[Rfam]
This 34-nucleotide RNA sequence from Mediterranea sp. An20 belongs to the Rfam family "S4-Bacteroidia ribosomal protein leader". NCBI's taxonomy places the organism under Bacteria, Bacteroidota, Bacteroidia, Bacteroidales, Mediterranea. For this family Rfam cites "Discovery of 20 novel ribosomal leader candidates in bacteria and archaea" (Eckert and Weinberg, BMC Microbiol, 2020). It is annotated as a cis-regulatory leader. Clan: Ribosomal Protein S4 Leader clan.
RNA sequence: GAUUGUAUCAAAUUCUUCUCUGCAAUCGCGGCUG
Numbered sequence: 001g002a003u004u005g006u007a008u009c010a011a012a013u014u015c016u017u018c019u020c021u022g023c024a025a026u027c028g029c030g031g032c033u034g
Base pairs, nucleotide, nucleotide: 001027002026003025004024005023006022007021